Annotation: A member of the RNA family "UnaL2 LINE 3' element" from Clupea harengus, 54 nucleotides long. From the family's description: The eel long interspersed element (LINE) UnaL2 and its partner short interspersed element (SINE) share a conserved 3' tail containing a stem-loop that is critical for their retrotransposition. Presumably, the first step of retrotransposition is the recognition of their 3' tails by UnaL2-encoded reverse transcriptase. The solution structure of a 17-nucleotide RNA derived from the 3' tail of UnaL2 was determined by NMR. A reference for the family is Baba et al. (2004), "Solution structure of an RNA stem-loop derived from the 3' conserved region of eel LINE UnaL2", RNA.

[Rfam]
RNA sequence: UGUGUAUACAUAAGUAAGUCGCUUUGGAUAAAAGCGUCUGCUAAAUGACUAAAU
Numbered sequence: 001u002g003u004g005u006a007u008a009c010a011u012a013a014g015u016a017a018g019u020c021g022c023u024u025u026g027g028a029u030a031a032a033a034g035c036g037u038c039u040g041c042u043a044a045a046u047g048a049c050u051a052a053a054u
Stems, first nucleotide, its partner, number of pairs: 014041003020036006